[Rfam]
RNA sequence: CGACAACUGUUCCUCCUGCUGCUUUAAGCUUCUAGCAUGUCAGGAUUUUAGGUUGUCGCAGAGUAAACAGGGUCUACUUCACCCAGUGCAUAGAAGGUAGCGGGGCUGCCCCUCUGAGCUCUGGUUUUUGCGGAACCCUACAUAA
Numbered sequence: 001c002g003a004c005a006a007c008u009g010u011u012c013c014u015c016c017u018g019c020u021g022c023u024u025u026a027a028g029c030u031u032c033u034a035g036c037a038u039g040u041c042a043g044g045a046u047u048u049u050a051g052g053u054u055g056u057c058g059c060a061g062a063g064u065a066a067a068c069a070g071g072g073u074c075u076a077c078u079u080c081a082c083c084c085a086g087u088g089c090a091u092a093g094a095a096g097g098u099a100g101c102g103g104g105g106c107u108g109c110c111c112c113u114c115u116g117a118g119c120u121c122u123g124g125u126u127u128u129u130g131c132g133g134a135a136c137c138c139u140a141c142a143u144a145a
Base pairs, nucleotide, nucleotide: 001058002057003056004055005054006053007052008051014045015044016043017042018041020037021036022035023034071137072136073135075133083124084123085122086121088119089118091116092115096110097109098108099107